The record is a 238-nucleotide sequence, which matches "Streptomyces sRNA 4677" in Rfam. The base pairs follow the family's consensus structure.
RNA sequence: CGCACGAUGCAAAAAGCUCUAAGAACGUUUGAAAGAAACGGGAAAACCACCCACCCGACCCCACUCGACCCCCACCCGCCCCUGUCACUCCCACGGGUGACAUUCCCGAAUUGGGCUGGAUAUGGGGCGGGUUGGCGGGCAUAUGCUCGCGGCGACAACCACAGACAUGCGUCGGCCCCCGGCCGGGACUGCAAUCCCGAUCGAGGGCCUGACCAUCAAGGAAGUUCGGAGCUUCCCG
Numbered sequence: 001c002g003c004a005c006g007a008u009g010c011a012a013a014a015a016g017c018u019c020u021a022a023g024a025a026c027g028u029u030u031g032a033a034a035g036a037a038a039c040g041g042g043a044a045a046a047c048c049a050c051c052c053a054c055c056c057g058a059c060c061c062c063a064c065u066c067g068a069c070c071c072c073c074a075c076c077c078g079c080c081c082c083u084g085u086c087a088c089u090c091c092c093a094c095g096g097g098u099g100a101c102a103u104u105c106c107c108g109a110a111u112u113g114g115g116c117u118g119g120a121u122a123u124g125g126g127g128c129g130g131g132u133u134g135g136c137g138g139g140c141a142u143a144u145g146c147u148c149g150c151g152g153c154g155a156c157a158a159c160c161a162c163a164g165a166c167a168u169g170c171g172u173c174g175g176c177c178c179c180c181g182g183c184c185g186g187g188a189c190u191g192c193a194a195u196c197c198c199g200a201u202c203g204a205g206g207g208c209c210u211g212a213c214c215a216u217c218a219a220g221g222a223a224g225u226u227c228g229g230a231g232c233u234u235c236c237c238g
Base pairs, nucleotide, nucleotide: 006217007216008215009214016071085100086099087098088097089096090095115153116152117149118148119147174209175208176207177206178205180203181202185198186197187196188195220236221235222234223233224232
Dot-bracket structure: .....((((......(......................................................).............((((((....))))))..............(((((...........................)))..))....................(((((.((...((((......))))...)).)))))....))))..(((((.......)))))..
Record summary:
A search with the family's covariance model found it, with a score of 116 bits. Rfam's curators write: Located in the intergenic region between anti-sigma factor SCO4677 gene and a putative regulatory protein gene SCO4676. scr4677 expression requires the SCO4677 activity and scr4677 sRNA itself seem to affect the levels of the SCO4676-associated transcripts.